RNA sequence: AGGUUUGAAAUUCUUCGGCAGUUAACUGCCGAAGUUUUCCUCGGCAGUUAACUACCGAAGGGCAU
Numbered sequence: 001a002g003g004u005u006u007g008a009a010a011u012u013c014u015u016c017g018g019c020a021g022u023u024a025a026c027u028g029c030c031g032a033a034g035u036u037u038u039c040c041u042c043g044g045c046a047g048u049u050a051a052c053u054a055c056c057g058a059a060g061g062g063c064a065u
Base pairs, nucleotide, nucleotide: 012061013060015058016057017056018055020053021052022051023050024049025048026047027046028045029044